[Rfam]
Record summary
A member of the RNA family "Small nucleolar RNA SNORD10" from Triplophysa rosa, 138 nucleotides long. Taxonomically the source falls in Triplophysa (Eukaryota, Actinopteri, Osteoglossocephalai, Otomorpha). The literature on the family includes a 2001 paper in EMBO J by Huttenhofer et al., "RNomics: an experimental approach that identifies 201 candidates for novel, small, non-messenger RNAs in mouse". It scores 83 bits against the family's covariance model.
RNA sequence: GUUUUGUGAUGAUUCCCAUGCGUGUCAACUGAUCCUUGACCCCCUGCAGUACUCUGUGUCUGUUUAGCGUUUUGCUUUGCAGUACAUUUGAGUCUGUAGGACUCUAGGAACAUGAUCAUGACUGUCAAGUCUGAAAAU
Number, nucleotide and partner (000 for none) at each position: 001g138002u137003u136004u135005u000006g000007u000008g000009a000010u000011g000012a000013u000014u000015c000016c000017c000018a000019u000020g000021c000022g000023u000024g000025u000026c000027a000028a000029c000030u000031g000032a000033u000034c000035c000036u000037u000038g000039a000040c000041c000042c000043c100044c099045u098046g097047c096048a095049g094050u000051a000052c000053u000054c000055u000056g000057u000058g000059u000060c000061u000062g000063u000064u000065u000066a000067g000068c000069g000070u000071u000072u000073u000074g000075c000076u000077u000078u000079g000080c000081a000082g000083u000084a000085c000086a000087u000088u000089u000090g000091a000092g000093u000094c049095u048096g047097u046098a045099g044100g043101a000102c000103u000104c000105u000106a000107g000108g000109a000110a000111c000112a000113u000114g000115a000116u000117c000118a000119u000120g000121a000122c000123u000124g000125u000126c000127a000128a000129g000130u000131c000132u000133g000134a000135a004136a003137a002138u001